Notes: The family of this 241-nucleotide RNA sequence from Streptomyces sp. QHH-9511 is "Streptomyces sRNA 4677". Rfam's curators write: Located in the intergenic region between anti-sigma factor SCO4677 gene and a putative regulatory protein gene SCO4676. scr4677 expression requires the SCO4677 activity and scr4677 sRNA itself seem to affect the levels of the SCO4676-associated transcripts. The family has 12 seed sequences and 563 matches in Rfam 15.1. Lineage of the source: Bacteria > Actinomycetota > Kitasatosporales > Streptomycetaceae > Streptomyces. The literature on the family includes a 2014 paper in PLoS One by Hindra et al., "Complex intra-operonic dynamics mediated by a small RNA in Streptomyces coelicolor".

RNA sequence: AGCCGCGUUCUCGUGGGGCGCGAGGUAAAAGGCUUUAAAGCCCUGAGGGAAGUACCUUCCCAACCCCUCCAGCCGCCCCGCGGGGUCGCGUCACUCGGACGAGUGGACUCUGCCAACUGGGGUGGAUUCCGGGGCGGUUGCCUGGCAUAUGCUCGCGCCGACAACCGGAAAUAGUUCGGCCCCCGGCCGGGACUGCAAUCCCGAUCGAGGGCCUGACCAACGAGGAAGAGAACGCUUCCCG
Numbered sequence: 001a002g003c004c005g006c007g008u009u010c011u012c013g014u015g016g017g018g019c020g021c022g023a024g025g026u027a028a029a030a031g032g033c034u035u036u037a038a039a040g041c042c043c044u045g046a047g048g049g050a051a052g053u054a055c056c057u058u059c060c061c062a063a064c065c066c067c068u069c070c071a072g073c074c075g076c077c078c079c080g081c082g083g084g085g086u087c088g089c090g091u092c093a094c095u096c097g098g099a100c101g102a103g104u105g106g107a108c109u110c111u112g113c114c115a116a117c118u119g120g121g122g123u124g125g126a127u128u129c130c131g132g133g134g135c136g137g138u139u140g141c142c143u144g145g146c147a148u149a150u151g152c153u154c155g156c157g158c159c160g161a162c163a164a165c166c167g168g169a170a171a172u173a174g175u176u177c178g179g180c181c182c183c184c185g186g187c188c189g190g191g192a193c194u195g196c197a198a199u200c201c202c203g204a205u206c207g208a209g210g211g212c213c214u215g216a217c218c219a220a221c222g223a224g225g226a227a228g229a230g231a232a233c234g235c236u237u238c239c240c241g
Base pairs, nucleotide, nucleotide: 007221008220009219016078017077018076019075091106092105093104094103095102096101121156123155124154125153178213179212180211181210182209184207185206189202190201191200192199224239225238226237227236228235